L31-Firmicutes ribosomal protein leader: a 34-nucleotide RNA.
The literature on the family includes a 2020 paper in BMC Microbiol by Eckert and Weinberg, "Discovery of 20 novel ribosomal leader candidates in bacteria and archaea".
RNA sequence: CUUUAGGCCCGCUUCGGGCUUAAGGCGGAAGGAG
Numbered sequence: 001c002u003u004u005a006g007g008c009c010c011g012c013u014u015c016g017g018g019c020u021u022a023a024g025g026c027g028g029a030a031g032g033a034g
Base pairs, nucleotide, nucleotide: 001025002024003023004022005021006020007019008018009017010016011015
By type it is a cis-regulatory leader.
The sequence is in the family's curated seed alignment.